[Rfam]
The record is a 177-nucleotide RNA from Desulfuribacillus alkaliarsenatis, which matches "Molybdenum/Tungsten riboswitch aptamer (Moco RNA motif)" in Rfam. Taxonomically the source falls in Desulfuribacillus (Bacteria, Bacillati, Desulfuribacillia, Desulfuribacillaceae). Its family is annotated with molybdenum ion binding, regulation of gene expression and tungstate binding in the Gene Ontology. A reference for the family is Regulski et al. (2008), "in molybdenum cofactor and tungsten cofactor metabolism", Mol Microbiol.
RNA sequence: AAAACAUCAAUUGUCCGAACCUACUUGCCUACGUUGCAUUAUGCAAUAUGGAAGUAAGGUCGUUGUUUGAAGAAGCGAUGGUGAAGCAGGUAGUCACGAGAUUUCUUUGAAGCAGCCAGGGUAUAAUAGGAAACAAUUAUGCCUUCCCAUUGUAUAAGGACGAUGGUUAUAUUUUCA
Numbered sequence: 001a002a003a004a005c006a007u008c009a010a011u012u013g014u015c016c017g018a019a020c021c022u023a024c025u026u027g028c029c030u031a032c033g034u035u036g037c038a039u040u041a042u043g044c045a046a047u048a049u050g051g052a053a054g055u056a057a058g059g060u061c062g063u064u065g066u067u068u069g070a071a072g073a074a075g076c077g078a079u080g081g082u083g084a085a086g087c088a089g090g091u092a093g094u095c096a097c098g099a100g101a102u103u104u105c106u107u108u109g110a111a112g113c114a115g116c117c118a119g120g121g122u123a124u125a126a127u128a129g130g131a132a133a134c135a136a137u138u139a140u141g142c143c144u145u146c147c148c149a150u151u152g153u154a155u156a157a158g159g160a161c162g163a164u165g166g167u168u169a170u171a172u173u174u175u176c177a
Stems, first nucleotide, its partner, number of pairs: 004170001006168001011163006019060004025054002028051002033047004062116007119144009129134001145154001